[Rfam]
RNA: Glycine riboswitch aptamer
Organism: Pararhodospirillum photometricum
RNA sequence: AUGAUCGUCGCGGGAGAGUCCGCUGCGCCGAAACGGCUGGCAGUGGCGCCGAAGGAGCAACCGCCCCCGGAACCUCUCAGGCACCCAGGACCGCGAUCGUUCC
Numbered sequence: 001a002u003g004a005u006c007g008u009c010g011c012g013g014g015a016g017a018g019u020c021c022g023c024u025g026c027g028c029c030g031a032a033a034c035g036g037c038u039g040g041c042a043g044u045g046g047c048g049c050c051g052a053a054g055g056a057g058c059a060a061c062c063g064c065c066c067c068c069g070g071a072a073c074c075u076c077u078c079a080g081g082c083a084c085c086c087a088g089g090a091c092c093g094c095g096a097u098c099g100u101u102c103c
Stems, first nucleotide, its partner, number of pairs: 007097007020046007048082003051078002055076003061069001